[Rfam]
RNA sequence: ACCUUAUCAAGAGCGGCUGAGGAAACAGGUCCUGUGAAGCCCGGCAACCUGAAGCAAUUCAAGGUGCCAAAUCCUGCGGUAUUAUUCCGAAAGAUGAGGA
Numbered sequence: 001a002c003c004u005u006a007u008c009a010a011g012a013g014c015g016g017c018u019g020a021g022g023a024a025a026c027a028g029g030u031c032c033u034g035u036g037a038a039g040c041c042c043g044g045c046a047a048c049c050u051g052a053a054g055c056a057a058u059u060c061a062a063g064g065u066g067c068c069a070a071a072u073c074c075u076g077c078g079g080u081a082u083u084a085u086u087c088c089g090a091a092a093g094a095u096g097a098g099g100a
Stems, first nucleotide, its partner, number of pairs: 002099007013042001015041003021032003026076004043068004048064002050061004072092001077089003081085001
RNA: SAM riboswitch aptamer (S box leader)
Organism: Ruminococcaceae bacterium FB2012